[Rfam]
RNA: FMN riboswitch aptamer (RFN element)
Organism: Pseudomonas putida
RNA sequence: GUCGGUCUUCAGGGCGGGGUGUAAGUCCCCACCGGCGGUAAAUCGAAAGAUGAGCCCGCGAGCGCCCCGACCAUGUCGGGGGUCAGCAGAUCUGGUGCAACUCCAGAGCCGACGGUCAUAGUCCGGAUGAAAGAAGGCGUCA
Number, nucleotide and partner (000 for none) at each position: 001g000002u000003c000004g000005g138006u137007c136008u135009u134010c133011a000012g000013g000014g000015c000016g000017g029018g028019g027020u000021g000022u000023a000024a000025g000026u000027c019028c018029c017030c000031a122032c121033c111034g110035g059036c058037g057038g056039u000040a000041a000042a000043u000044c000045g000046a000047a000048a000049g000050a000051u000052g000053a000054g109055c108056c038057c037058g036059c035060g000061a000062g087063c086064g000065c000066c000067c000068c000069g000070a000071c000072c000073a000074u000075g000076u000077c000078g000079g000080g000081g000082g000083u000084c000085a000086g063087c062088a000089g000090a000091u107092c106093u105094g104095g103096u000097g000098c000099a000100a000101c000102u000103c095104c094105a093106g092107a091108g055109c054110c034111g033112a000113c125114g124115g123116u000117c000118a000119u000120a000121g032122u031123c115124c114125g113126g000127a000128u000129g000130a000131a000132a000133g010134a009135a008136g007137g006138c005139g000140u000141c000142a000